RNA: mir-375 microRNA precursor family
Organism: Branchiostoma belcheri
RNA sequence: GAUAGGCCGAGCCCGGCGUGCAAAGCUGUGUACAACAUGAAUGUUUUGUUCGUUCGGCUCGCGUUAUCU
Numbered sequence: 001g002a003u004a005g006g007c008c009g010a011g012c013c014c015g016g017c018g019u020g021c022a023a024a025g026c027u028g029u030g031u032a033c034a035a036c037a038u039g040a041a042u043g044u045u046u047u048g049u050u051c052g053u054u055c056g057g058c059u060c061g062c063g064u065u066a067u068c069u
Stems, first nucleotide, its partner, number of pairs: 001068003004064001006062001008061006017052002020049004025044002